Background:
A member of the RNA family "L31-Firmicutes ribosomal protein leader" from Saitozyma sp. JCM 24511, 33 nucleotides long.
[Rfam]
RNA sequence: CUCCGUAUCGGCAUUGAGUCGGGGCAGAAGGAG
Numbered sequence: 001c002u003c004c005g006u007a008u009c010g011g012c013a014u015u016g017a018g019u020c021g022g023g024g025c026a027g028a029a030g031g032a033g
Base pairs, nucleotide, nucleotide: 001024002023003022004021005020008017009016010015
A reference for the family is Eckert and Weinberg (2020), "Discovery of 20 novel ribosomal leader candidates in bacteria and archaea", BMC Microbiol.